The family of this 77-nucleotide sequence from Anolis carolinensis is "Small nucleolar RNA SNORD83". The base pairs follow the family's consensus structure, which was predicted with PFOLD. For this family Rfam cites "Characterisation of the U83 and U84 small nucleolar RNAs: two novel 2'-O-ribose methylation guide RNAs that lack complementarities to ribosomal RNAs" (Jady and Kiss, Nucleic Acids Res, 2000). Rfam 15.1 lists 1,393 matches to the family in 644 species.
RNA sequence: GCCAAAUGAUGUAAAAUAGAUUUCCUUGAGCACUCUGUGCAAAGAGGACUCCUAUCUAUCACCCAAGACUGAUGGCU
Numbered sequence: 001g002c003c004a005a006a007u008g009a010u011g012u013a014a015a016a017u018a019g020a021u022u023u024c025c026u027u028g029a030g031c032a033c034u035c036u037g038u039g040c041a042a043a044g045a046g047g048a049c050u051c052c053u054a055u056c057u058a059u060c061a062c063c064c065a066a067g068a069c070u071g072a073u074g075g076c077u
Stems, first nucleotide, its partner, number of pairs: 001076004030040004